A member of the RNA family "MIR2619 microRNA precursor family" from Medicago truncatula, 200 nucleotides long. Rfam links the family to the GO terms RISC complex and miRNA-mediated post-transcriptional gene silencing. It scores 137 bits against the family's covariance model.
Nucleotides: 200
Base pairs, nucleotide, nucleotide: 001200002199004197005196006195007194008193011189012188013187014186015185016184017183018182019181020180021179022178023177024176025175026174027173028172030170031169032168033167034166035165037163038162039161040160041159043157044156071129072128074126075125076124077123078122080120081119082118083117084116
Number, partner (000 for none) and nucleotide at each position: 001200a002199a003000a004197u005196a006195g007194c008193u009000c010000a011189u012188a013187u014186g015185u016184a017183u018182u019181g020180g021179a022178u023177u024176u025175u026174u027173g028172a029000c030170a031169g032168u033167u034166u035165u036000a037163g038162c039161c040160c041159c042000c043157a044156a045000u046000g047000c048000c049000a050000c051000u052000u053000u054000u055000g056000a057000c058000u059000u060000a061000g062000u063000u064000u065000u066000u067000g068000c069000u070000g071129a072128c073000g074126u075125g076124g077123c078122a079000c080120u081119c082118a083117c084116a085000u086000c087000c088000c089000u090000u091000a092000a093000g094000u095000g096000a097000g098000g099000u100000g101000c102000c103000a104000c105000g106000u107000g108000u109000c110000g111000a112000c113000c114000a115000u116084u117083g118082u119081g120080g121000a122078u123077g124076u125075c126074a127000c128072g129071u130000c131000a132000g133000c134000g135000a136000a137000g138000a139000c140000u141000a142000a143000g144000u145000c146000a147000a148000a149000a150000g151000c152000g153000g154000u155000c156044u157043u158000u159041g160040g161039g162038g163037c164000c165035a166034a167033a168032a169031c170030u171000a172028u173027c174026a175025a176024a177023g178022a179021u180020c181019c182018a183017a184016u185015a186014c187013a188012u189011a190000g191000a192000g193008g194007g195006u196005u197004g198000u199002u200001u